[Rfam]
RNA: skipping-rope RNA
RNA sequence: GGGCUUUGAGGUGGUAGAUUCCGUACCGACCACACGCCGACGGUAUUGACAGGGGCAACCCGAGAGAUGCAGGAGAAUGGUACGCCUGCCAAAGUCC
Numbered sequence: 001g002g003g004c005u006u007u008g009a010g011g012u013g014g015u016a017g018a019u020u021c022c023g024u025a026c027c028g029a030c031c032a033c034a035c036g037c038c039g040a041c042g043g044u045a046u047u048g049a050c051a052g053g054g055g056c057a058a059c060c061c062g063a064g065a066g067a068u069g070c071a072g073g074a075g076a077a078u079g080g081u082a083c084g085c086c087u088g089c090c091a092a093a094g095u096c097c
Stems, first nucleotide, its partner, number of pairs: 001097008011033005023083005035064001036044003069089005